[Rfam]
RNA sequence: CCCCCCGAAACUACCCGCAGGUAGACCUCCAUGGAGAUUUCGGAUGAGGUAGAGCGACCGAUUGGCCGGUUAGUAGUCGAAAGACUGCGCCGGCCUAUCAAACUCCGAACUUGUCCGAAUCGUAGAUAUGGGGUGCUAGGGCAUAGGGAUAAGCUUUAUGCCCGUGAAGGGAACAACCUAGACCUGGAUUAAGGCCUCUAAAUACUGGCUAAGUGCGAUCUAAAAAGGUUUGCGGCCGAAGACAGUGGGGAGGUUGGCUUAGAAGCAGCCAUCCUUUAAAGAGUGCGUAACAGCUCACUCACCGAGGCUACAUGCCUUGAAGAUGGAAGAGGCUAAAGCCAGUUGCCGAGAUCCAGGACCACCGCAAGGUGAUGUGGUAGGGGGGCGUGCUGUAUGGGACGAAGCUUCUUCGAGAGGAGGAGUGGACCGUACAGUAUCGCGGAU
Dot-bracket structure: ((((((....(((((....))))).(((((((...(((.((((((((....(((.....(((.((((((...((((((....)))))).)))))).)))...)).)....)))))))))))......)))))).)...(((((((((.......)))))))))....(((......)))...(((((((...(((......(.((((((...............(((((.((.((((.......(((((.(((..(((.........)))..)))(...)(...((......)).).)))))...)))).)).)))))...................))))))))))...)))))))((((((....))))..))....))))))(.((((((((((......((((((((....))))))))...))))))))))..).....
RNA: Archaeal large subunit ribosomal RNA, nucleotides 877 to 1320
Organism: Picrophilus oshimae